RNA: Pseudomonas sRNA P11
Organism: Pseudomonas panipatensis
RNA sequence: CUCCCAGGGAAUUGGCACGGCACCUGCAAUAACACUGGCAACAAUUUACAAAAGCGCGGACCUCAACGACGAGGGCCGCACUUCCCGAUCGAUCGGGACUUGGACAAAGGCGUCCUCGCUGGGCAACCAGCGGGACGCC
Number, nucleotide and partner (000 for none) at each position: 001c000002u000003c000004c000005c000006a000007g000008g000009g000010a000011a000012u107013u106014g105015g027016c026017a025018c000019g000020g000021c000022a000023c000024c000025u017026g016027c015028a000029a000030u000031a000032a000033c000034a000035c000036u000037g000038g000039c000040a000041a000042c000043a000044a000045u000046u000047u000048a000049c000050a000051a000052a000053a000054g081055c000056g079057c078058g077059g000060a000061c074062c000063u072064c071065a000066a000067c000068g000069a000070c000071g064072a063073g000074g061075g000076c000077c058078g057079c056080a000081c054082u000083u098084c097085c096086c095087g094088a000089u000090c000091g000092a000093u000094c087095g086096g085097g084098a083099c000100u000101u000102g000103g000104a000105c014106a013107a012108a000109g139110g138111c137112g136113u135114c134115c133116u000117c132118g131119c130120u129121g128122g127123g000124c000125a000126a000127c122128c121129a120130g119131c118132g117133g115134g114135a113136c112137g111138c110139c109